[Rfam]
Nucleotides: 076
Stems, first nucleotide, its partner, number of pairs: 008018004039061009
Number, partner (000 for none) and nucleotide at each position: 001000g002000g003000a004000a005000c006000g007000g008018g009017c010016c011015u012000u013000u014000c015011a016010g017009g018008c019000a020000u021000c022000c023000u024000c025000u026000c027000c028000c029000a030000a031000a032000a033000c034000u035000u036000c037000u038000c039061a040060g041059g042058g043057c044056u045055g046054g047053c048000g049000u050000u051000u052000c053047g054046u055045c056044a057043g058042c059041c060040c061039u062000u063000u064000c065000u066000u067000u068000u069000u070000g071000c072000c073000c074000a075000c076000g

Shown here is a 76-nucleotide RNA sequence from Novosphingobium nitrogenifigens, a member of the family "Makes More Granules Regulator RNA (mmgR)". A search with the family's covariance model found it, with a score of 50 bits. The source organism's lineage runs through Bacteria, Pseudomonadota, Alphaproteobacteria, Novosphingobium and Novosphingobium nitrogenifigens. The pairing is the family consensus, mapped onto this sequence. On this family, see Corbino et al., Genome Biol 2005: "Evidence for a second class of S-adenosylmethionine riboswitches and other regulatory RNA motifs in alpha-proteobacteria". Rfam describes the family as follows. SuhB later renamed mmgR (makes more granules regulator) was a putative non-coding RNA found multiple times in the Agrobacterium tumefaciens genome and related alpha-proteobacteria. Other non-coding RNAs uncovered in the same analysis include: speF, ybhL, metA, and serC.Several studies inSinorhizobium meliloti showed that suhB element is indeed a non-coding RNA:firstly it was detected on Northern blot and called Sm8RNA, secondly in an RNAseq study referred to as SmelC689.The mutant phenotype's (strain lacking the small RNA) cytoplasm contains higher content of polyhydroxybutyrate (PBH)storage granules than wild type strain.